[Rfam]
RNA: MIR2619 microRNA precursor family
Organism: Medicago truncatula
RNA sequence: AAACAGCCCCCUAUGUUUUGAUUCUUUGGCAGUUUUGGACCCCCAGUCCAUUGUUGACUCGGUCAACGCUGAUGUGGCAUCCUAAGUGAGGUGUCUCGUGUCAAUUUUCUGUUUUGUUUUUUGCCUUGGGGGUCCAAAACUGCCAAAGAAUCAAAACAUAGGGGGCUGUUU
Numbered sequence: 001a002a003a004c005a006g007c008c009c010c011c012u013a014u015g016u017u018u019u020g021a022u023u024c025u026u027u028g029g030c031a032g033u034u035u036u037g038g039a040c041c042c043c044c045a046g047u048c049c050a051u052u053g054u055u056g057a058c059u060c061g062g063u064c065a066a067c068g069c070u071g072a073u074g075u076g077g078c079a080u081c082c083u084a085a086g087u088g089a090g091g092u093g094u095c096u097c098g099u100g101u102c103a104a105u106u107u108u109c110u111g112u113u114u115u116g117u118u119u120u121u122u123g124c125c126u127u128g129g130g131g132g133u134c135c136a137a138a139a140c141u142g143c144c145a146a147a148g149a150a151u152c153a154a155a156a157c158a159u160a161g162g163g164g165g166c167u168g169u170u171u
Stems, first nucleotide, its partner, number of pairs: 001171002004168005012160034